Rfam assigns this 66-nucleotide RNA sequence from Microtus ochrogaster to the family "Small nucleolar RNA SNORD58". The source organism's lineage runs through Eukaryota, Bilateria, Chordata, Craniata and Microtus. Rfam's curators write: snoRNA U58 is found in introns 1, 3 and 6 of the ribosomal protein RPL17 gene in humans. It scores 73 bits against the family's covariance model.
RNA sequence: CUGCGAUGAUGUCAUUUCUUAGGACACCUUUGGAUUGGCCGUGAAAAUAACUCUCCUCUGAGCAGC
Number, nucleotide and partner (000 for none) at each position: 001c065002u064003g063004c062005g000006a000007u000008g000009a000010u000011g000012u000013c000014a000015u000016u000017u000018c000019u000020u000021a000022g000023g000024a000025c000026a000027c000028c000029u000030u000031u000032g000033g000034a000035u000036u000037g000038g000039c000040c000041g000042u000043g000044a000045a000046a000047a000048u000049a000050a000051c000052u000053c000054u000055c000056c000057u000058c000059u000060g000061a000062g004063c003064a002065g001066c000